[Rfam]
RNA sequence: UCCGAUAAAGGCAAACCUGUCGAAAGGCAGGGACGCAAAGUCAUGGGUCUAAAGUUGUGUAAACACAGCCAGGACCGCCAGACUGCCGAAG
Numbered sequence: 001u002c003c004g005a006u007a008a009a010g011g012c013a014a015a016c017c018u019g020u021c022g023a024a025a026g027g028c029a030g031g032g033a034c035g036c037a038a039a040g041u042c043a044u045g046g047g048u049c050u051a052a053a054g055u056u057g058u059g060u061a062a063a064c065a066c067a068g069c070c071a072g073g074a075c076c077g078c079c080a081g082a083c084u085g086c087c088g089a090a091g
Stems, first nucleotide, its partner, number of pairs: 001091001003088002011036002016031006034077001039084004044080003047075003
RNA: c-di-GMP-I-GGC riboswitch aptamer
Organism: Anaerolineales bacterium